[Rfam]
RNA sequence: GCAUCUGGCUCUGAGAACUGAAUUCCAUAGGCUGUGAGCUCAUGCAAAUGCCCUAGGAAGUCAGUUCUGGAGUCCGGUGACCUCGA
Numbered sequence: 001g002c003a004u005c006u007g008g009c010u011c012u013g014a015g016a017a018c019u020g021a022a023u024u025c026c027a028u029a030g031g032c033u034g035u036g037a038g039c040u041c042a043u044g045c046a047a048a049u050g051c052c053c054u055a056g057g058a059a060g061u062c063a064g065u066u067c068u069g070g071a072g073u074c075c076g077g078u079g080a081c082c083u084c085g086a
Base pairs, nucleotide, nucleotide: 004077005076007074008073009072014068015067016066017065018064019063020062021061030052031051032050